[Rfam]
RNA sequence: UUCGAUAAUGGCAAACCCACUGAAAAGUGGGGACGCAAAGCCACGGGCCUACCGUUUAUGCUGGCAUAAACCAUGGCAGCCGGGUUGCCGAAA
Numbered sequence: 001u002u003c004g005a006u007a008a009u010g011g012c013a014a015a016c017c018c019a020c021u022g023a024a025a026a027g028u029g030g031g032g033a034c035g036c037a038a039a040g041c042c043a044c045g046g047g048c049c050u051a052c053c054g055u056u057u058a059u060g061c062u063g064g065c066a067u068a069a070a071c072c073a074u075g076g077c078a079g080c081c082g083g084g085u086u087g088c089c090g091a092a093a
Base pairs, nucleotide, nucleotide: 001093003090004089011036012035016031017030018029019028020027021026034079039086040085041084042083044082045081046080047077048076049075
The record is a 93-nucleotide RNA sequence from Aneurinibacillus sp. XH2, which matches "c-di-GMP-I-GGC riboswitch aptamer" in Rfam. Its Rfam clan is "c-di-GMP_I riboswitch clan". NCBI's taxonomy places the organism under Bacteria, Bacillati, Bacillota, Paenibacillaceae, Aneurinibacillus.